[Rfam]
RNA sequence: GCAAUAGAAAGGCUUAUAUGGGCGGUCGGCUAAUCUCCCGGAAGGGAGGUGAUGCUACGUGGAAGUAUAUCAAACUCUGAUGUUGAUGAUUUCGUUCGCAACGUUGGUGAUUCUGAUUCUUUCUUUCCACAAAAAGAAAUAGACCGCCCUCUGCAAGGGUAGCGGUCUAUUCAUGUGGCCCUAUUCCGAAAGCCAACCGCCCUUAAAAGCGGCUAUUGCAUCGGGAGUCGUGUUAGCGCACGGCUC
Number, nucleotide and partner (000 for none) at each position: 001g219002c218003a217004a216005u000006a214007g213008a000009a000010a000011g194012g193013c192014u191015u190016a000017u000018a000019u000020g149021g148022g147023c000024g144025g000026u142027c000028g000029g000030c000031u052032a000033a050034u000035c048036u047037c046038c045039c044040g000041g000042a000043a000044g039045g038046g037047a036048g035049g000050u033051g000052a031053u000054g000055c000056u000057a000058c000059g000060u000061g123062g122063a121064a120065g119066u000067a117068u000069a000070u000071c000072a000073a000074a000075c088076u000077c000078u000079g000080a000081u000082g000083u000084u000085g000086a000087u000088g075089a000090u000091u000092u000093c000094g000095u000096u000097c000098g000099c115100a114101a000102c000103g000104u000105u000106g000107g000108u000109g000110a000111u000112u000113c000114u100115g099116a000117u067118u000119c065120u064121u063122u062123c061124u000125u000126u000127c000128c000129a000130c000131a000132a000133a000134a000135a000136g000137a000138a000139a000140u000141a000142g026143a000144c024145c000146g000147c022148c021149c020150u000151c000152u000153g176154c175155a174156a000157g000158g000159g000160u000161a000162g000163c000164g000165g000166u000167c000168u000169a000170u000171u000172c000173a000174u155175g154176u153177g000178g000179c000180c000181c000182u000183a000184u000185u000186c000187c000188g000189a000190a015191a014192g013193c012194c011195a000196a000197c212198c211199g210200c209201c000202c000203u000204u000205a000206a000207a000208a000209g200210c199211g198212g197213c007214u006215a000216u004217u003218g002219c001220a000221u000222c000223g000224g000225g246226a245227g244228u243229c242230g241231u240232g239233u238234u000235a000236g000237c000238g233239c232240a231241c230242g229243g228244c227245u226246c225
Shown here is a 246-nucleotide sequence from Saccharibacillus sacchari, a member of the family "BsrG". NCBI's taxonomy places the organism under Bacteria, Bacillota, Paenibacillaceae, Saccharibacillus, Saccharibacillus sacchari. The base pairs follow the family's consensus structure, which was predicted with WAR. bsrE, bsrG and bsrH pair through intermolecular interactions with antisense sRNAs. They form type I toxin/antitoxin system that includes an mRNA encoding for a short, toxic peptide (bsrE, bsrG and bsrH) and an antitoxin that is comprised of an antisense RNA. bsrG encodes a 39-amino-acid toxin, and the 180 nucleotide antisense sRNA called SR4 acts as the antitoxin (they overlap by 123 nucleotides). SR4 interaction with the 3'UTR of bsrG RNA promotes bsrG degradation and inhibits its translation. The match comes from Rfam's covariance-model search (66 bits). For this family Rfam cites "Novel small RNA-encoding genes in the intergenic regions of Bacillus subtilis" (Saito et al., Gene, 2008). It is annotated as a small RNA.